[Rfam]
RNA sequence: GUCGGAGUGGUGGAACGGCAGACACGCUAGCUUGAGGUGCUAGUGCCCAUCUAACGGGUGUGCGGGUUCAAAUCCCGCCUCCGACA
Numbered sequence: 001g002u003c004g005g006a007g008u009g010g011u012g013g014a015a016c017g018g019c020a021g022a023c024a025c026g027c028u029a030g031c032u033u034g035a036g037g038u039g040c041u042a043g044u045g046c047c048c049a050u051c052u053a054a055c056g057g058g059u060g061u062g063c064g065g066g067u068u069c070a071a072a073u074c075c076c077g078c079c080u081c082c083g084a085c086a
Base pairs, nucleotide, nucleotide: 001085002084003083004082005081006080007079010025011024012023027043028042029041030040031039062078063077064076065075066074
RNA: tRNA